[Rfam]
RNA sequence: GGGUCAAUGAUGAGAAUCUUACAUUGUUCUGAAGAGAGGCGAUGACUUAAAAAUCAUGCUCAAGGGCUGGGCGCGGUGGCUC
Number, nucleotide and partner (000 for none) at each position: 001g082002g081003g080004u079005c076006a000007a000008u073009g072010a000011u000012g000013a000014g000015a000016a000017u000018c000019u000020u000021a000022c000023a000024u000025u000026g000027u000028u000029c000030u000031g000032a000033a000034g000035a000036g000037a000038g000039g000040c000041g000042a000043u000044g000045a000046c000047u000048u000049a000050a000051a000052a000053a000054u000055c000056a000057u000058g000059c000060u000061c000062a000063a000064g000065g000066g000067c000068u000069g000070g000071g000072c009073g008074c000075g000076g005077u000078g000079g004080c003081u002082c001

Shown here is an 82-nucleotide sequence from Saimiri boliviensis, a member of the family "Small nucleolar RNA SNORD115". Pairs were carried over by alignment from the consensus structure, which was predicted with PFOLD. Lineage of the source: Eukaryota > Eumetazoa > Dipnotetrapodomorpha > Haplorrhini > Saimiri boliviensis.